A member of the RNA family "mir-24 microRNA precursor family" from Synaphobranchus kaupii, 70 nucleotides long. Its family is annotated with miRNA-mediated post-transcriptional gene silencing and RISC complex in the Gene Ontology. Rfam's curators write: This family represents the microRNA (miRNA) mir-24 family. miRNAs are transcribed as ~70nt precursors (modelled here) and subsequently processed by the Dicer enzyme to give a ~22nt product. In this case the mature sequence comes from the 3' arm of the precursor. The extents of the hairpin precursors are not generally known and are estimated based on hairpin prediction. The products are thought to have regulatory roles through complementarity to mRNA. The involvement of Dicer in miRNA processing suggests a relationship with the phenomenon of RNA interference. miRNAs are numbered based on the sequence of the mature RNA. miR-24 has been identified in human and mouse. The literature on the family includes a 2001 paper in Cell by Ambros, "microRNAs: tiny regulators with great potential". The organism belongs to Synaphobranchus, within Eukaryota. The base pairs follow the family's consensus structure, which was predicted with RNAalifold.
RNA sequence: ACCUCCUGUUCCUGCUGAACUGGUAACAGUGUGCAGACAGGAAGCUGGCUCAGUUCUGCAGAAACUGGAG
Numbered sequence: 001a002c003c004u005c006c007u008g009u010u011c012c013u014g015c016u017g018a019a020c021u022g023g024u025a026a027c028a029g030u031g032u033g034c035a036g037a038c039a040g041g042a043a044g045c046u047g048g049c050u051c052a053g054u055u056c057u058g059c060a061g062a063a064a065c066u067g068g069a070g
Base pairs, nucleotide, nucleotide: 003070004069005068006067008065009064012061013060015058017056018055019054020053021052022051023050027047028046029045030044